Background: Rfam assigns this 97-nucleotide sequence from Nicotiana sylvestris to the family "MIR6152 microRNA precursor family".
RNA sequence: UGGAUAGAUUAUUGUAUUCAACUACAUUCACGACGUGAAAUGGGGGAUUACGUUGUUUUUAAAACGGAAUGUGAAUCAAUUAACAUAAUAGACUCCU
Numbered sequence: 001u002g003g004a005u006a007g008a009u010u011a012u013u014g015u016a017u018u019c020a021a022c023u024a025c026a027u028u029c030a031c032g033a034c035g036u037g038a039a040a041u042g043g044g045g046g047a048u049u050a051c052g053u054u055g056u057u058u059u060u061a062a063a064a065c066g067g068a069a070u071g072u073g074a075a076u077c078a079a080u081u082a083a084c085a086u087a088a089u090a091g092a093c094u095c096c097u
Stems, first nucleotide, its partner, number of pairs: 002096003009091007017083002020081002023078001026076006034066003037059007

The base pairs follow the family's consensus structure, which was predicted with RNAalifold.